[Rfam]
RNA sequence: UGUGACGGGCGAGCUUUUGGCCCGGGUUAUACCUGCUGCUCACGUAUAGAGGCAAAAAGCUUGUUGGUCAGAGG
Dot-bracket structure: ..((((.((.((((((((.(.......(((((...........)))))....).)))))))).)).))))....
Numbered sequence: 001u002g003u004g005a006c007g008g009g010c011g012a013g014c015u016u017u018u019g020g021c022c023c024g025g026g027u028u029a030u031a032c033c034u035g036c037u038g039c040u041c042a043c044g045u046a047u048a049g050a051g052g053c054a055a056a057a058a059g060c061u062u063g064u065u066g067g068u069c070a071g072a073g074g
Stems, first nucleotide, its partner, number of pairs: 003070004008065002011062008020053001028048005